This 87-nucleotide sequence from Pelotomaculum propionicicum belongs to the Rfam family "c-di-GMP-I riboswitch aptamer". The base pairs follow the family's consensus structure, which is taken from published work.

RNA sequence: UAACAAGAAAGGCAAACCCGAACGAAAGACGGGGACGCAAAGCCGUGGGUCUAAAGCCAGGGAGGUUAUGAUCGCCAGGCUGCCGUA
Dot-bracket structure: ...........((...((((..(....).))))...))..((((.((((((....(((.....)))...)))..)))))))......